Rfam assigns this 135-nucleotide RNA from Paenibacillus sp. IHBB 10380 to the family "SAM riboswitch aptamer (S box leader)".
Gene Ontology term of the family: regulation of gene expression.
Pairs were carried over by alignment from the consensus structure, which is taken from published work.
It scores 76 bits against the family's covariance model.
RNA sequence: UUCUUAUCGAGAGAGGCGGAGGGAUAGGCCCGAUGAAGCCCGGCAACCGAUUAAGGAGUAAUGAACGUUAUCACUCUUUAAUGUCAUGGUGCUAAUUCCUACAGAUCGCAUACAGGCGUUUCUGGCAGAUGAGAG
Numbered sequence: 001u002u003c004u005u006a007u008c009g010a011g012a013g014a015g016g017c018g019g020a021g022g023g024a025u026a027g028g029c030c031c032g033a034u035g036a037a038g039c040c041c042g043g044c045a046a047c048c049g050a051u052u053a054a055g056g057a058g059u060a061a062u063g064a065a066c067g068u069u070a071u072c073a074c075u076c077u078u079u080a081a082u083g084u085c086a087u088g089g090u091g092c093u094a095a096u097u098c099c100u101a102c103a104g105a106u107c108g109c110a111u112a113c114a115g116g117c118g119u120u121u122c123u124g125g126c127a128g129a130u131g132a133g134a135g
Base pairs, nucleotide, nucleotide: 001135002134003133004132005131006130007129008128013041015040016039017038021031022030023029025101026100027099028098042093043092044091045090047089048088049085050084051083097127102124103123104122105121